[Rfam]
RNA sequence: GAAAAACCGAUGAGAAAGAGUAGUAAGAUAUCAGGUGAAACAACAGAGAGCGGCAGGCGGUGGGAUUGCCGUGUGGAGCAGAUAUCCGAAUGGACUUUCGAGGGCAGCCUGAAAUGAAAAAAGUAGGCGCUGUCGGGAACCAAACCCGUUAUCAAUGUGGGAUGUAUGCUAGUACAUGAAAGAGGACUUAACGUCAAUUUGAGUGGCACCGCGAUAAUACAAGUUUAUUACCGUCUCAAAC
Number, nucleotide and partner (000 for none) at each position: 001g000002a000003a000004a000005a000006a000007c103008c102009g000010a000011u000012g000013a000014g000015a098016a097017a096018g095019a000020g000021u000022a000023g000024u000025a000026a000027g086028a085029u084030a083031u082032c000033a000034g000035g000036u000037g000038a000039a000040a074041c073042a000043a000044c000045a000046g000047a000048g000049a000050g072051c071052g070053g069054c068055a067056g000057g000058c000059g000060g000061u000062g000063g000064g000065a000066u000067u055068g054069c053070c052071g051072u050073g041074u040075g000076g000077a000078g000079c000080a000081g000082a031083u030084a029085u028086c027087c000088g000089a000090a000091u000092g000093g000094a000095c018096u017097u016098u015099c000100g000101a000102g008103g007104g000105c132106a131107g130108c129109c000110u127111g000112a000113a000114a000115u000116g000117a000118a000119a000120a000121a000122a000123g000124u000125a000126g000127g110128c000129g108130c107131u106132g105133u000134c148135g147136g146137g000138a000139a000140c000141c000142a000143a000144a000145c000146c136147c135148g134149u000150u000151a000152u000153c000154a000155a000156u000157g000158u000159g000160g000161g000162a000163u000164g000165u000166a000167u000168g000169c000170u000171a000172g000173u000174a000175c000176a000177u000178g000179a000180a000181a000182g000183a000184g000185g195186a194187c193188u000189u000190a000191a000192c000193g187194u186195c185196a000197a000198u000199u000200u238201g237202a236203g235204u000205g000206g000207c000208a000209c000210c000211g234212c233213g232214a000215u230216a229217a228218u227219a226220c000221a000222a000223g000224u000225u000226u219227a218228u217229u216230a215231c000232c213233g212234u211235c203236u202237c201238a200239a000240a000241c000